[Rfam]
RNA sequence: AAAAUAUGUUUUCAAAAACAAAAUAAGUUUGAGCUUGCUAUAGCAACCAAGUCUAACCUAUUCCGGUGCCCUCCUCUAUGAGGCAAGCCGUUACAGAGACUUAGACAGU
Numbered sequence: 001a002a003a004a005u006a007u008g009u010u011u012u013c014a015a016a017a018a019c020a021a022a023a024u025a026a027g028u029u030u031g032a033g034c035u036u037g038c039u040a041u042a043g044c045a046a047c048c049a050a051g052u053c054u055a056a057c058c059u060a061u062u063c064c065g066g067u068g069c070c071c072u073c074c075u076c077u078a079u080g081a082g083g084c085a086a087g088c089c090g091u092u093a094c095a096g097a098g099a100c101u102u103a104g105a106c107a108g109u
Stems, first nucleotide, its partner, number of pairs: 003024001005022001007020004049102006059095001061093001064090004070083004

The family of this 109-nucleotide RNA from Pipistrellus kuhlii is "Small nucleolar RNA SNORA28". Clan: SNORA28 clan. Rfam describes the family as follows. ACA28 is a member of the H/ACA class of snoRNA that guide the sites of modification of uridines to pseudouridines.